[Rfam]
RNA sequence: GCUGAUUCAACAGGGGUAACAUGAGAAUACAUGAAGGAGAUAAUAUCAAAGAGUCAUUCUAUUGUAGUAUCAGUGACAGUGUCUUCCAUGUGUUCUCAGGUCGCCCCUGCCGAAUCUUC
Numbered sequence: 001g002c003u004g005a006u007u008c009a010a011c012a013g014g015g016g017u018a019a020c021a022u023g024a025g026a027a028u029a030c031a032u033g034a035a036g037g038a039g040a041u042a043a044u045a046u047c048a049a050a051g052a053g054u055c056a057u058u059c060u061a062u063u064g065u066a067g068u069a070u071c072a073g074u075g076a077c078a079g080u081g082u083c084u085u086c087c088a089u090g091u092g093u094u095c096u097c098a099g100g101u102c103g104c105c106c107c108u109g110c111c112g113a114a115u116c117u118u119c
Stems, first nucleotide, its partner, number of pairs: 007113002011109004016104002019101001023097010
Background: Shown here is a 119-nucleotide sequence from Thalictrum thalictroides, a member of the family "MIR398 microRNA precursor family". A search with the family's covariance model found it, with a score of 60 bits. The base pairs follow the family's consensus structure, which was predicted with WAR. NCBI's taxonomy places the organism under Eukaryota, Streptophyta, Streptophytina, Ranunculales, Thalictrum. A reference for the family is Jones-Rhoades and Bartel (2004), "Computational identification of plant microRNAs and their targets, including a stress-induced miRNA", Mol Cell.